[Rfam]
RNA sequence: GGAGCGGGGGGGCAGGAGGGGCUCAGGGAGAAAGUGUGUGCAGCCCCUGGCCCUCUCUGCCCUUCCGUCCC
Numbered sequence: 001g002g003a004g005c006g007g008g009g010g011g012g013c014a015g016g017a018g019g020g021g022c023u024c025a026g027g028g029a030g031a032a033a034g035u036g037u038g039u040g041c042a043g044c045c046c047c048u049g050g051c052c053c054u055c056u057c058u059g060c061c062c063u064u065c066c067g068u069c070c071c
Base pairs, nucleotide, nucleotide: 001070002069003068005067007065008064009063010062011061012060013059014058015057016056018054019053020052021051022050024049025048026047027046028045